[Rfam]
Nucleotides: 076
Base pairs, nucleotide, nucleotide: 001076002075003074004073005072006071
Number, partner (000 for none) and nucleotide at each position: 001076c002075a003074u004073u005072g006071a007000a008000g009000u010000g011000a012000u013000g014000a015000u016000a017000c018000u019000u020000u021000u022000u023000c024000u025000g026000a027000a028000u029000u030000u031000a032000a033000u034000g035000a036000a037000u038000g039000u040000g041000g042000a043000u044000u045000u046000a047000u048000u049000c050000a051000a052000u053000c054000a055000g056000a057000c058000u059000a060000c061000a062000a063000u064000u065000a066000u067000c068000u069000g070000a071006u072005c073004a074003a075002u076001g

The record is a 76-nucleotide RNA from Vigna angularis, which matches "Small nucleolar RNA Z155" in Rfam. Its family is annotated with nucleolus and RNA processing in the Gene Ontology. The base pairs follow the family's consensus structure. The match comes from Rfam's covariance-model search (52 bits).